Overview:
The family of this 403-nucleotide sequence from Hyphobacterium sp. CCMP332 is "Bacterial RNase P class A". It is annotated as a ribozyme. The match comes from Rfam's covariance-model search (281 bits). The organism belongs to Hyphobacterium, within Bacteria.
RNA sequence: UCAGGCGGCCGGGCGACCGCGCUUGCAAGUCCCGAAAGGGCGCAAGGGAGGAAAGUCCGGGCUCCGGAAAGGCAAGGUGCCAGGUAACGCCUGGCGGGGGUGACCCCAGGGAUAGCGCCACAGAGAACAGACCGCCCGCCAGAGCUUCGGCCAUGACGGGUAAGGGUGAAACGGUGCGGUAAGAGCGCACCGCCCCGACCGUAAGGAAGGGGGCACGGCAAGCCCCACCUGGAGCAAGACCGAAUAGGGAUGGACGCGGGUCAGACCGCACGCACGCCUUGCUGCGCCAUCCGGGUAGGUCGCGUCAGGCCCGUCGCGAGGCGGGUCGCAGAGGAAUGGUCGUCGCGUUCUUUCCGUCAUGGAAAGAAUGGCACAGAACCCGGCUUACAGGCCGCCUGAUCAC
Numbered sequence: 001u002c003a004g005g006c007g008g009c010c011g012g013g014c015g016a017c018c019g020c021g022c023u024u025g026c027a028a029g030u031c032c033c034g035a036a037a038g039g040g041c042g043c044a045a046g047g048g049a050g051g052a053a054a055g056u057c058c059g060g061g062c063u064c065c066g067g068a069a070a071g072g073c074a075a076g077g078u079g080c081c082a083g084g085u086a087a088c089g090c091c092u093g094g095c096g097g098g099g100g101u102g103a104c105c106c107c108a109g110g111g112a113u114a115g116c117g118c119c120a121c122a123g124a125g126a127a128c129a130g131a132c133c134g135c136c137c138g139c140c141a142g143a144g145c146u147u148c149g150g151c152c153a154u155g156a157c158g159g160g161u162a163a164g165g166g167u168g169a170a171a172c173g174g175u176g177c178g179g180u181a182a183g184a185g186c187g188c189a190c191c192g193c194c195c196c197g198a199c200c201g202u203a204a205g206g207a208a209g210g211g212g213g214c215a216c217g218g219c220a221a222g223c224c225c226c227a228c229c230u231g232g233a234g235c236a237a238g239a240c241c242g243a244a245u246a247g248g249g250a251u252g253g254a255c256g257c258g259g260g261u262c263a264g265a266c267c268g269c270a271c272g273c274a275c276g277c278c279u280u281g282c283u284g285c286g287c288c289a290u291c292c293g294g295g296u297a298g299g300u301c302g303c304g305u306c307a308g309g310c311c312c313g314u315c316g317c318g319a320g321g322c323g324g325g326u327c328g329c330a331g332a333g334g335a336a337u338g339g340u341c342g343u344c345g346c347g348u349u350c351u352u353u354c355c356g357u358c359a360u361g362g363a364a365a366g367a368a369u370g371g372c373a374c375a376g377a378a379c380c381c382g383g384c385u386u387a388c389a390g391g392c393c394g395c396c397u398g399a400u401c402a403c
Stems, first nucleotide, its partner, number of pairs: 001399010011388001012344007020048001022046005053386003057383005062234004070279004075230005080094005095109001096107004110225002115223002117219003132165002134161005140155002173191006192214001193212004199206002238301004248292006272282003308327008
Dot-bracket structure: ((((((((((((((((((.(.(((((...............))))).)....[[[.[[[[[((((....[[[[.((((((((((.....)))))(((((....)))).)((...(((((............(((((((.((............)).)))))..)).......((((((.......))))))(((((..((....))..)))).)..)))..)))))))))))))...((((......((((((..................(((.]]]])))....)))))).....))))......((((((((....))))))))..........)))))))..................................]]]]]]]].).))))))))))....